[Rfam]
RNA sequence: CACUCCGAGGAGCGUUGCAACGGAUCCGCCUCCUUUCCCCGGUGCCGGCCUGAUACUUCCCUUUCAGGCCCGCCGCCAGGAUUGGGCGCUUCCGCCAGGCUCGGACUGUCUUCAACGGCGCUCGCUGAUC
Numbered sequence: 001c002a003c004u005c006c007g008a009g010g011a012g013c014g015u016u017g018c019a020a021c022g023g024a025u026c027c028g029c030c031u032c033c034u035u036u037c038c039c040c041g042g043u044g045c046c047g048g049c050c051u052g053a054u055a056c057u058u059c060c061c062u063u064u065c066a067g068g069c070c071c072g073c074c075g076c077c078a079g080g081a082u083u084g085g086g087c088g089c090u091u092c093c094g095c096c097a098g099g100c101u102c103g104g105a106c107u108g109u110c111u112u113c114a115a116c117g118g119c120g121c122u123c124g125c126u127g128a129u130c
Base pairs, nucleotide, nucleotide: 002107004105005104006103007102008101021094022093023092024091
RNA: SAH (S-adenosyl-L-homocysteine) riboswitch aptamer
Organism: Cupriavidus sp. USMAA2-4